Rfam assigns this 75-nucleotide RNA sequence from Muraenolepis orangiensis to the family "mir-10 microRNA precursor family". The organism belongs to Muraenolepis, within Eukaryota. It scores 52 bits against the family's covariance model. The family has 36 seed sequences and 3,853 matches in Rfam 15.1.
[Rfam]
RNA sequence: CCAUGUAUACCCUGUAGAACCGAAUGUGUGGGACAUUGUUCCAGUCACAGAUUGGGUUCUGAGGGAGUCUAUGGU
Numbered sequence: 001c002c003a004u005g006u007a008u009a010c011c012c013u014g015u016a017g018a019a020c021c022g023a024a025u026g027u028g029u030g031g032g033a034c035a036u037u038g039u040u041c042c043a044g045u046c047a048c049a050g051a052u053u054g055g056g057u058u059c060u061g062a063g064g065g066a067g068u069c070u071a072u073g074g075u
Stems, first nucleotide, its partner, number of pairs: 002073004007068001010065003016060006023053003027049004